[Rfam]
RNA sequence: AUAAUAAUUGGAGAUGGCAUUCCUCCAUUAACCGCCGCAAUCUGUGGCUGAUGAUGCCUACGACUGG
Numbered sequence: 001a002u003a004a005u006a007a008u009u010g011g012a013g014a015u016g017g018c019a020u021u022c023c024u025c026c027a028u029u030a031a032c033c034g035c036c037g038c039a040a041u042c043u044g045u046g047g048c049u050g051a052u053g054a055u056g057c058c059u060a061c062g063a064c065u066g067g
Stems, first nucleotide, its partner, number of pairs: 010026004016058006034048004
RNA: Fluoride riboswitch aptamer (crcB RNA motif)
Organism: Nitrosomonas europaea